The record is a 73-nucleotide sequence from Fervidicoccus fontis, which matches "tRNA" in Rfam.
Pairs were carried over by alignment from the consensus structure, which is taken from published work.
RNA sequence: GCCGCCGUAGCUCAGCUGGAAGAGCGCCGGACUGUGGAUCCGGAGGUCCCGGGUUCAAAUCCCGGCGGCGGCC
Numbered sequence: 001g002c003c004g005c006c007g008u009a010g011c012u013c014a015g016c017u018g019g020a021a022g023a024g025c026g027c028c029g030g031a032c033u034g035u036g037g038a039u040c041c042g043g044a045g046g047u048c049c050c051g052g053g054u055u056c057a058a059a060u061c062c063c064g065g066c067g068g069c070g071g072c073c
Base pairs, nucleotide, nucleotide: 001072002071003070004069005068006067007066010025011024012023013022027043028042029041030040031039049065050064051063052062053061